The record is a 151-nucleotide RNA from Orthoflavivirus murrayense, which matches "Flavivirus 5' UTR" in Rfam.
The family is grouped with related families in Rfam's "Flavivirus 5' UTR clan".
Pairs were carried over by alignment from the consensus structure, which was predicted with LocARNA.
By type it is a cis-regulatory element.
The 5' UTR of flaviviruses are highly structured, has a length of approximately 100 nucleotides and harbors two conserved RNA secondary structures vital for the viral life cycle. During replication, a long-range RNA-RNA interaction between 5' UTR and 3' UTR of the genome is formed to initiate synthesis of new viral replicates and viral protein translation. In direct adjacency to the 5' UTR, already part of the coding region, lies the cHP structure, which is essential for the viral replication.
Lineage of the source: Viruses > Amarillovirales > Flaviviridae > Orthoflavivirus > Orthoflavivirus murrayense.
Its family is annotated with viral RNA genome replication in the Gene Ontology.
[Rfam]
RNA sequence: AGACGUUCAUCUGCGUGAGCUUCCGAUCUCAGUAUUGUUUGGAAGGAUCAUUUGAUUAACGCGGUUUGAACAGUUUUUUGGAGCUUUUGAUUUCAAAUGUCUAAAAAACCAGGAGGACCCGGGAAGCCCCGGGUCGUCAAUAUGCUAAAAC
Numbered sequence: 001a002g003a004c005g006u007u008c009a010u011c012u013g014c015g016u017g018a019g020c021u022u023c024c025g026a027u028c029u030c031a032g033u034a035u036u037g038u039u040u041g042g043a044a045g046g047a048u049c050a051u052u053u054g055a056u057u058a059a060c061g062c063g064g065u066u067u068g069a070a071c072a073g074u075u076u077u078u079u080g081g082a083g084c085u086u087u088u089g090a091u092u093u094c095a096a097a098u099g100u101c102u103a104a105a106a107a108a109c110c111a112g113g114a115g116g117a118c119c120c121g122g123g124a125a126g127c128c129c130c131g132g133g134u135c136g137u138c139a140a141u142a143u144g145c146u147a148a149a150a151c
Stems, first nucleotide, its partner, number of pairs: 005071005011064006020045002023042004030037002046057004073109009086097004113138002116135007